[Rfam]
RNA sequence: AAUCACACAGAAGGAGUUCCCGUGUCGGCGUCAGUGUGCUUCCGGAUUGCGUUCUACCAUGAUGACCUCUCAGCAGAAUCGUGUCGGCGAAGGUAUAAGAUCAUUACAGAACUGUCAGCUUACAAGACAGUCUUCACCUUUGCAAUUUUCACUGCUGCGAAACGAUGCCCGUAGUUGACGUUGGAAGCAGUGCUGGGACCCAUCUCGAGUUGGAGUCAAAGUUUCGUGCUUGUCUGGUACUGUGAACGACCAUUCUCUGGAGCUGAAAAUCUCGCCUAUGAGUAGCAAUGGUAAGGCUGGGUUGUGUUGUUGGAUCUGGGACAGACCUUGUUGGGUGAGGUAGUCCUGGCUGUCCUCUCUCCUGAAAAUGGUGUUGAGGGCAGCCCCCC
Numbered sequence: 001a002a003u004c005a006c007a008c009a010g011a012a013g014g015a016g017u018u019c020c021c022g023u024g025u026c027g028g029c030g031u032c033a034g035u036g037u038g039c040u041u042c043c044g045g046a047u048u049g050c051g052u053u054c055u056a057c058c059a060u061g062a063u064g065a066c067c068u069c070u071c072a073g074c075a076g077a078a079u080c081g082u083g084u085c086g087g088c089g090a091a092g093g094u095a096u097a098a099g100a101u102c103a104u105u106a107c108a109g110a111a112c113u114g115u116c117a118g119c120u121u122a123c124a125a126g127a128c129a130g131u132c133u134u135c136a137c138c139u140u141u142g143c144a145a146u147u148u149u150c151a152c153u154g155c156u157g158c159g160a161a162a163c164g165a166u167g168c169c170c171g172u173a174g175u176u177g178a179c180g181u182u183g184g185a186a187g188c189a190g191u192g193c194u195g196g197g198a199c200c201c202a203u204c205u206c207g208a209g210u211u212g213g214a215g216u217c218a219a220a221g222u223u224u225c226g227u228g229c230u231u232g233u234c235u236g237g238u239a240c241u242g243u244g245a246a247c248g249a250c251c252a253u254u255c256u257c258u259g260g261a262g263c264u265g266a267a268a269a270u271c272u273c274g275c276c277u278a279u280g281a282g283u284a285g286c287a288a289u290g291g292u293a294a295g296g297c298u299g300g301g302u303u304g305u306g307u308u309g310u311u312g313g314a315u316c317u318g319g320g321a322c323a324g325a326c327c328u329u330g331u332u333g334g335g336u337g338a339g340g341u342a343g344u345c346c347u348g349g350c351u352g353u354c355c356u357c358u359c360u361c362c363u364g365a366a367a368a369u370g371g372u373g374u375u376g377a378g379g380g381c382a383g384c385c386c387c388c389c
Stems, first nucleotide, its partner, number of pairs: 197217003200213003219231004
Rfam assigns this 389-nucleotide part of an RNA from Fusarium venenatum to the family "Ascomycota telomerase RNA". The base pairs follow the family's consensus structure.